The family of this 73-nucleotide sequence from Atractosteus spatula is "Small nucleolar RNA SNORD58". A reference for the family is Galardi et al. (2002), "Purified box C/D snoRNPs are able to reproduce site-specific 2'-O-methylation of target RNA in vitro", Mol Cell Biol. The organism belongs to Atractosteus, within Eukaryota.
RNA sequence: GUGCCAUGAUGACUAUCUUAGGACACCUUUGGAGGGUUAUAUCCUAUGAAACGAAUGCAUUUCUCUGAGCACU
Numbered sequence: 001g002u003g004c005c006a007u008g009a010u011g012a013c014u015a016u017c018u019u020a021g022g023a024c025a026c027c028u029u030u031g032g033a034g035g036g037u038u039a040u041a042u043c044c045u046a047u048g049a050a051a052c053g054a055a056u057g058c059a060u061u062u063c064u065c066u067g068a069g070c071a072c073u
Stems, first nucleotide, its partner, number of pairs: 001072004

Rfam describes the family as follows. snoRNA U58 is found in introns 1, 3 and 6 of the ribosomal protein RPL17 gene in humans. Pairs were carried over by alignment from the consensus structure, which was predicted with PFOLD.